Overview
The family of this 157-nucleotide RNA from Cajanus cajan is "MIR4371 microRNA precursor family". The organism belongs to Cajanus, within Eukaryota. Rfam links the family to the GO terms miRNA-mediated post-transcriptional gene silencing and RISC complex. Pairs were carried over by alignment from the consensus structure, which was predicted with RNAalifold.
[Rfam]
RNA sequence: CUGUCAAGUGAUGACAUGGCAGACGGACUGCCACGUCAUCAUCCAACAGUAUUUGCCACAUCAUCAACAUGUCCAUAUGGCAGUCCCUUAGAUGACAUGGCAGACACUAUUGGGUGAUGACGUGGCAGUCCGUCUGCCAUGUCAUCACUUAACAGAU
Numbered sequence: 001c002u003g004u005c006a007a008g009u010g011a012u013g014a015c016a017u018g019g020c021a022g023a024c025g026g027a028c029u030g031c032c033a034c035g036u037c038a039u040c041a042u043c044c045a046a047c048a049g050u051a052u053u054u055g056c057c058a059c060a061u062c063a064u065c066a067a068c069a070u071g072u073c074c075a076u077a078u079g080g081c082a083g084u085c086c087c088u089u090a091g092a093u094g095a096c097a098u099g100g101c102a103g104a105c106a107c108u109a110u111u112g113g114g115u116g117a118u119g120a121c122g123u124g125g126c127a128g129u130c131c132g133u134c135u136g137c138c139a140u141g142u143c144a145u146c147a148c149u150u151a152a153c154a155g156a157u
Stems, first nucleotide, its partner, number of pairs: 001155004006150041049107002052104002055101004071093003075089001

About this RNA
The match comes from Rfam's covariance-model search (111 bits).